Rfam assigns this 82-nucleotide RNA from Vanessa tameamea to the family "mir-263 microRNA precursor family". NCBI's taxonomy places the organism under Eukaryota, Ecdysozoa, Obtectomera, Nymphalini, Vanessa. The literature on the family includes a 2009 paper in BMC Genomics by Li et al., "Direct sequencing and expression analysis of a large number of miRNAs in Aedes aegypti and a multi-species survey of novel mosquito miRNAs". Rfam links the family to the GO terms RISC complex and miRNA-mediated post-transcriptional gene silencing. Clan: mir-182 clan. Rfam 15.1 lists 368 matches to the family in 211 species. Pairs were carried over by alignment from the consensus structure, which was predicted with RNAalifold.
[Rfam]
RNA sequence: UCGCGCUGGGUCUUGGCACUGGGAGAAUUCACAGGAGUUAUAUAAUUACCCGUGAAUUUCCUGAUGCCUUAGCUCAGUGUGG
Numbered sequence: 001u002c003g004c005g006c007u008g009g010g011u012c013u014u015g016g017c018a019c020u021g022g023g024a025g026a027a028u029u030c031a032c033a034g035g036a037g038u039u040a041u042a043u044a045a046u047u048a049c050c051c052g053u054g055a056a057u058u059u060c061c062u063g064a065u066g067c068c069u070u071a072g073c074u075c076a077g078u079g080u081g082g
Base pairs, nucleotide, nucleotide: 003080004079005078006077007076008075009074010073015068016067017066018065020063021062022061023059025058026057029055030054031053032052034050